This 126-nucleotide RNA from Listeria booriae belongs to the Rfam family "FMN riboswitch aptamer (RFN element)". Gene Ontology term of the family: FMN binding. The organism belongs to Listeria, within Bacteria. A search with the family's covariance model found it, with a score of 123 bits.

[Rfam]
RNA sequence: GUUCAUCUUCGGGGCAGGGUGUAAUUCCCGACCGGUGGUUAAAGUCCACGAACUGUUUCUUUUUGAGAUGGUUGAUUUGGUGCAAUUCCAAAACCGACAGUAUAGUCUGGAUGGGAGGAGAUGUUG
Numbered sequence: 001g002u003u004c005a006u007c008u009u010c011g012g013g014g015c016a017g018g019g020u021g022u023a024a025u026u027c028c029c030g031a032c033c034g035g036u037g038g039u040u041a042a043a044g045u046c047c048a049c050g051a052a053c054u055g056u057u058u059c060u061u062u063u064u065g066a067g068a069u070g071g072u073u074g075a076u077u078u079g080g081u082g083c084a085a086u087u088c089c090a091a092a093a094c095c096g097a098c099a100g101u102a103u104a105g106u107c108u109g110g111a112u113g114g115g116a117g118g119a120g121a122u123g124u125u126g
Base pairs, nucleotide, nucleotide: 004123005122006121007120008119009118010117017029018028019027031106032105033096034095035049036048037047038046044094045093052072053071054070076092077091078090079089080088098109099108100107